Nucleotides: 110
Base pairs, nucleotide, nucleotide: 006098007097008096009095010094011060012059013058014057018030019029020028021027039052040051041050042049066091067090068089069088072085073084074083075082
Number, partner (000 for none) and nucleotide at each position: 001000a002000a003000a004000u005000a006098u007097c008096a009095c010094u011060a012059g013058g014057g015000g016000a017000u018030c019029c020028c021027u022000u023000g024000a025000u026000a027021a028020g029019g030018g031000c032000u033000g034000a035000g036000a037000a038000u039052a040051a041050a042049g043000u044000a045000g046000u047000u048000a049042c050041u051040u052039u053000u054000a055000a056000a057014c058013c059012c060011u061000c062000a063000a064000a065000a066091c067090c068089u069088g070000a071000a072085c073084a074083g075082g076000u077000u078000c079000g080000u081000a082075c083074c084073u085072g086000c087000g088069u089068a090067g091066g092000g093000a094010a095009g096008u097007g098006g099000c100000g101000c102000a103000u104000u105000g106000u107000a108000a109000u110000u